[Rfam]
RNA sequence: CCCCCUGGCAGUGGGCAAAGAGACACCUGAUGGGUGGUGCUGCUCUUAUAUCAGUCUGGGCAGAGGAGUGUCCAGCCCUUUGUUCAACCCAGCUUGGUGCCUGGGCUGGUGGCCAGAGCUGUUUCAUGCUUGAGGCACAUUA
Numbered sequence: 001c002c003c004c005c006u007g008g009c010a011g012u013g014g015g016c017a018a019a020g021a022g023a024c025a026c027c028u029g030a031u032g033g034g035u036g037g038u039g040c041u042g043c044u045c046u047u048a049u050a051u052c053a054g055u056c057u058g059g060g061c062a063g064a065g066g067a068g069u070g071u072c073c074a075g076c077c078c079u080u081u082g083u084u085c086a087a088c089c090c091a092g093c094u095u096g097g098u099g100c101c102u103g104g105g106c107u108g109g110u111g112g113c114c115a116g117a118g119c120u121g122u123u124u125c126a127u128g129c130u131u132g133a134g135g136c137a138c139a140u141u142a
Base pairs, nucleotide, nucleotide: 003060004059005058007056012053013052014051018047019046020045022041024039025038026037027036081137082136083135084134096130097129098128102126103125104124107121108120110118
Small nucleolar RNA SNORA48: a 142-nucleotide RNA sequence from Lipotes vexillifer.
On this family, see Ofengand and Bakin, J Mol Biol 1997: "Mapping to nucleotide resolution of pseudouridine residues in large subunit ribosomal RNAs from representative eukaryotes, prokaryotes, archaebacteria, mitochondria and chloroplasts".
Rfam's curators write: The snoRNA ACA 48 has been identified to guide pseudouridylation of the residue U3797 in the 28S rRNA subunit.
The match comes from Rfam's covariance-model search (60 bits).
The family has 24 seed sequences and 2,109 matches in Rfam 15.1.